[Rfam]
RNA: Group I catalytic intron
RNA sequence: GUAUUACAGUACUUCGUAGUAAGCCAGUAAGUAGAAGCGAACCUUCUGCUAGUCUUAAUAUAAUUAAGGCAAAACCAUCAAAUUGCGGGAAGGCCCUAAAGCAAUUUCAACCAAACUAACCUAGUAAUAGAGUUGGUGGCACAGGUAAUGACUCGUGGUAUGGUAAAAUCGAAAUUGAUUAUCUGUAUGACCUACAUGAUGAAUGGGUAAUCCGCAGCCAAGUAUCCUUUUCUUUCAAUAUUUUGAAUAGAAGGUAUGCAGUACAUCGACUAGACGGUGGUUGGCUUUGUUUUUCUUUAUUCAUUAGUAAUAAAUAAAAACUUGGCUUAAGGUAUAGUCAUGCCCCAUUUGAGAAAAUGAU
Numbered sequence: 001g002u003a004u005u006a007c008a009g010u011a012c013u014u015c016g017u018a019g020u021a022a023g024c025c026a027g028u029a030a031g032u033a034g035a036a037g038c039g040a041a042c043c044u045u046c047u048g049c050u051a052g053u054c055u056u057a058a059u060a061u062a063a064u065u066a067a068g069g070c071a072a073a074a075c076c077a078u079c080a081a082a083u084u085g086c087g088g089g090a091a092g093g094c095c096c097u098a099a100a101g102c103a104a105u106u107u108c109a110a111c112c113a114a115a116c117u118a119a120c121c122u123a124g125u126a127a128u129a130g131a132g133u134u135g136g137u138g139g140c141a142c143a144g145g146u147a148a149u150g151a152c153u154c155g156u157g158g159u160a161u162g163g164u165a166a167a168a169u170c171g172a173a174a175u176u177g178a179u180u181a182u183c184u185g186u187a188u189g190a191c192c193u194a195c196a197u198g199a200u201g202a203a204u205g206g207g208u209a210a211u212c213c214g215c216a217g218c219c220a221a222g223u224a225u226c227c228u229u230u231u232c233u234u235u236c237a238a239u240a241u242u243u244u245g246a247a248u249a250g251a252a253g254g255u256a257u258g259c260a261g262u263a264c265a266u267c268g269a270c271u272a273g274a275c276g277g278u279g280g281u282u283g284g285c286u287u288u289g290u291u292u293u294u295c296u297u298u299a300u301u302c303a304u305u306a307g308u309a310a311u312a313a314a315u316a317a318a319a320a321c322u323u324g325g326c327u328u329a330a331g332g333u334a335u336a337g338u339c340a341u342g343c344c345c346c347a348u349u350u351g352a353g354a355a356a357a358u359g360a361u
Base pairs, nucleotide, nucleotide: 073282074281075280076279077278079276084216085215086214087213088212089211094207095206096205217262218261222257223256224255225254230250231249233247234246266340268339269338270337271336272335284326285325286324289321290320291319292318346359347358348357349356350355